[Rfam]
RNA sequence: GGUGGUUCUUGGGUGAUGCCCCUGGAAUUGGGCUCCCUCUUCUCUGGUUCUGGGUGGAUCACCCAAGAACACCA
Numbered sequence: 001g002g003u004g005g006u007u008c009u010u011g012g013g014u015g016a017u018g019c020c021c022c023u024g025g026a027a028u029u030g031g032g033c034u035c036c037c038u039c040u041u042c043u044c045u046g047g048u049u050c051u052g053g054g055u056g057g058a059u060c061a062c063c064c065a066a067g068a069a070c071a072c073c074a
Base pairs, nucleotide, nucleotide: 002073005070006069007068008067009066010065011064012063013062014061015060016059017058019056020054021053022052024051025050026049027048028047029046030045031044032043
RNA: mir-9223 microRNA precursor family